Record summary: Shown here is a 94-nucleotide RNA from Phtheirospermum japonicum, a member of the family "Plastid-rps12 3UTR RNA".
RNA sequence: GAUUUUCAUUGGUACAAAUCUAAUUAUUUGAAUUUAAGAUGACAACCAAUUCCCCAUUGGUAACAAAUGGUUAUCCAUUAAGCGAAAAUUUUAU
Numbered sequence: 001g002a003u004u005u006u007c008a009u010u011g012g013u014a015c016a017a018a019u020c021u022a023a024u025u026a027u028u029u030g031a032a033u034u035u036a037a038g039a040u041g042a043c044a045a046c047c048a049a050u051u052c053c054c055c056a057u058u059g060g061u062a063a064c065a066a067a068u069g070g071u072u073a074u075c076c077a078u079u080a081a082g083c084g085a086a087a088a089u090u091u092u093a094u
Base pairs, nucleotide, nucleotide: 009023010022011021012020055084056078057077059075060074061073062072063071064070

For this family Rfam cites "Retrograde signaling in plants: A critical review focusing on the GUN pathway and beyond" (Richter et al., Plant Commun, 2023). The match comes from Rfam's covariance-model search (89 bits). About the family: Plastid rpl20 is a non-coding RNA (ncRNA) recognised in plastids. It was found in the three prime untranslated region (3UTR) of rps12 gene, its 3UTR location sugest a role in transcript maduration.